[Rfam]
Nucleotides: 160
Stems, first nucleotide, its partner, number of pairs: 012119004016048006023042005049089003053086001055083003059079003062075002091114003094110003098106002134159005142153004
Number, partner (000 for none) and nucleotide at each position: 001000a002000u003000a004000c005000u006000u007000a008000c009000c010000u011000a012119g013118a014117c015116g016048g017047g018046g019045u020044c021043a022000a023042u024041g025040g026039g027038c028000g029000a030000u031000c032000a033000a034000a035000a036000a037000g038027g039026u040025c041024c042023a043021u044020g045019g046018c047017c048016u049089a050088g051087g052000u053086u054000a055083g056082u057081g058000a059079c060078c061077u062075c063074c064000a065000u066000u067000g068000c069000a070000c071000u072000u073000a074063g075062g076000a077061g078060g079059g080000g081057u082056g083055c084000u085000c086053g087051c088050c089049u090000a091114a092113g093112a094110u095109a096108u097000c098106u099105c100000c101000a102000a103000g104000u105099g106098g107000g108096a109095u110094a111000g112093u113092c114091u115000a116015c117014g118013u119012c120000a121000u122000a123000a124000u125000u126000u127000g128000u129000u130000g131000u132000a133000g134159a135158g136157g137156g138155g139000a140000a141000a142153c143152g144151c145150g146000u147000u148000c149000g150145c151144g152143c153142g154000a155138c156137c157136c158135u159134u160000g

Shown here is a 160-nucleotide sequence from Coptis chinensis, a member of the family "U1 spliceosomal RNA". Clan: U1 clan. The base pairs follow the family's consensus structure, which is taken from published work.